[Rfam]
RNA sequence: CGGUUGUCGGAGAGGGGGCCGCUACACUGUCGGAGAUGGUGCAGCUGGUCUCACAGUGAACCGGUCUCUUUUCCUGCUGCUCA
Numbered sequence: 001c002g003g004u005u006g007u008c009g010g011a012g013a014g015g016g017g018g019c020c021g022c023u024a025c026a027c028u029g030u031c032g033g034a035g036a037u038g039g040u041g042c043a044g045c046u047g048g049u050c051u052c053a054c055a056g057u058g059a060a061c062c063g064g065u066c067u068c069u070u071u072u073c074c075u076g077c078u079g080c081u082c083a
Stems, first nucleotide, its partner, number of pairs: 006077002009074002015068007025058006033052003

Shown here is an 83-nucleotide RNA sequence from Danionella cerebrum, a member of the family "mir-128 microRNA precursor family". The literature on the family includes a 2006 paper in FEBS Lett by Xu et al., "Identification of microRNAs from different tissues of chicken embryo and adult chicken". Gene Ontology terms of the family: miRNA-mediated post-transcriptional gene silencing and RISC complex.